Small nucleolar RNA SNORD103/SNORD85: a 72-nucleotide RNA from Neogobius melanostomus. NCBI's taxonomy places the organism under Eukaryota, Chordata, Neopterygii, Neogobiini, Neogobius. For this family Rfam cites "RNomics: an experimental approach that identifies 201 candidates for novel, small, non-messenger RNAs in mouse" (Huttenhofer et al., EMBO J, 2001). The pairing is the family consensus, mapped onto this sequence.
RNA sequence: UCUGGCAAUGAUGACACACUUGCCCUCACUGAUAAUGGUGAUGAGGCUUUUAUGUACUCUACCUGAGCCGCA
Numbered sequence: 001u002c003u004g005g006c007a008a009u010g011a012u013g014a015c016a017c018a019c020u021u022g023c024c025c026u027c028a029c030u031g032a033u034a035a036u037g038g039u040g041a042u043g044a045g046g047c048u049u050u051u052a053u054g055u056a057c058u059c060u061a062c063c064u065g066a067g068c069c070g071c072a
Base pairs, nucleotide, nucleotide: 001072003070004069005068006067